[Rfam]
RNA sequence: UUUCAAAGAUGAUGAAAUCAGAAAAAUCUUAGGACACCUUCUGACACAGUCAGACAAUGCUGUGUAUGAGAAAUCAUUUUCUAUCUGAUUUGAUG
Numbered sequence: 001u002u003u004c005a006a007a008g009a010u011g012a013u014g015a016a017a018u019c020a021g022a023a024a025a026a027u028c029u030u031a032g033g034a035c036a037c038c039u040u041c042u043g044a045c046a047c048a049g050u051c052a053g054a055c056a057a058u059g060c061u062g063u064g065u066a067u068g069a070g071a072a073a074u075c076a077u078u079u080u081c082u083a084u085c086u087g088a089u090u091u092g093a094u095g
Stems, first nucleotide, its partner, number of pairs: 001095001003093005042048002

This 95-nucleotide sequence from Mikania micrantha belongs to the Rfam family "Small nucleolar RNA snoR31/Z110/Z27".
A search with the family's covariance model found it, with a score of 66 bits.
This family contains several related snoRNAs including R31, Z27 and Z110.
Pairs were carried over by alignment from the consensus structure, which was predicted with PFOLD.
The literature on the family includes a 2001 paper in J Mol Biol by Barneche et al., "Identification of 66 box C/D snoRNAs in Arabidopsis thaliana: extensive gene duplications generated multiple isoforms predicting new ribosomal RNA 2'-O-methylation sites".